[Rfam]
RNA: Caenorhabditis snoRNA ceN43
RNA sequence: UGCCCGGUCUUUGCCCCGGAUAAACUUUCUAUAGUUCUGACGGUUUCCGACUUGGGAAAAGUAUUGUUCGUGAGACGGCGGUAAUUUCGGACUUCGUUCUGAAUGUCUCUUGUCGACCUACGAUACAUUU
Numbered sequence: 001u002g003c004c005c006g007g008u009c010u011u012u013g014c015c016c017c018g019g020a021u022a023a024a025c026u027u028u029c030u031a032u033a034g035u036u037c038u039g040a041c042g043g044u045u046u047c048c049g050a051c052u053u054g055g056g057a058a059a060a061g062u063a064u065u066g067u068u069c070g071u072g073a074g075a076c077g078g079c080g081g082u083a084a085u086u087u088c089g090g091a092c093u094u095c096g097u098u099c100u101g102a103a104u105g106u107c108u109c110u111u112g113u114c115g116a117c118c119u120a121c122g123a124u125a126c127a128u129u130u
Stems, first nucleotide, its partner, number of pairs: 003056004007051003016043003023036004068123005074117001076115004080110002086103003090099002